[Rfam]
RNA: Manganese Mn2+ riboswitch aptamer (yybP-ykoY)
Organism: Novosphingobium sp. ST904
RNA sequence: CCGGCUUGUCAUCUGGGGAGUAGCCGCCUGCGCCCCUUGCCCCGGCCAUCGCCCGGACAAGACCAGCAGGACCUGUCGUCAACAUACUUGGUCGAGAGACCAUGGCGCACAGGAGGACGGAAAAUCCGUCC
Numbered sequence: 001c002c003g004g005c006u007u008g009u010c011a012u013c014u015g016g017g018g019a020g021u022a023g024c025c026g027c028c029u030g031c032g033c034c035c036c037u038u039g040c041c042c043c044g045g046c047c048a049u050c051g052c053c054c055g056g057a058c059a060a061g062a063c064c065a066g067c068a069g070g071a072c073c074u075g076u077c078g079u080c081a082a083c084a085u086a087c088u089u090g091g092u093c094g095a096g097a098g099a100c101c102a103u104g105g106c107g108c109a110c111a112g113g114a115g116g117a118c119g120g121a122a123a124a125u126c127c128g129u130c131c
Stems, first nucleotide, its partner, number of pairs: 027070005072113005077107005089102005115131006